The family of this 85-nucleotide RNA sequence from Blastococcus sp. CT_GayMR16 is "ZMP/ZTP riboswitch aptamer (pfl RNA motif)".
RNA sequence: CCGCGGGGCCGUGACUGGCGCAUCGAGGUGGACCACCACCGGGGAGCGGCCUGCCGGACUCCCGCCGUGCGCCUGGGCACCUCUC
Numbered sequence: 001c002c003g004c005g006g007g008g009c010c011g012u013g014a015c016u017g018g019c020g021c022a023u024c025g026a027g028g029u030g031g032a033c034c035a036c037c038a039c040c041g042g043g044g045a046g047c048g049g050c051c052u053g054c055c056g057g058a059c060u061c062c063c064g065c066c067g068u069g070c071g072c073c074u075g076g077g078c079a080c081c082u083c084u085c
Base pairs, nucleotide, nucleotide: 003055006052007051008050009049010048011047012046015043016042017073018072019071020070021069028039029038030037031036064078065077066076
Dot-bracket structure: ..(..(((((((..(([[[[[......((((....))))..))..)))))))..)........(((..]]]]]..))).......

Description
A search with the family's covariance model found it, with a score of 55 bits. Rfam links the family to the GO terms one-carbon metabolic process and regulation of purine nucleotide biosynthetic process. Taxonomically the source falls in Blastococcus (Bacteria, Actinomycetes, Geodermatophilales, Geodermatophilaceae). The family's consensus secondary structure is taken from published work.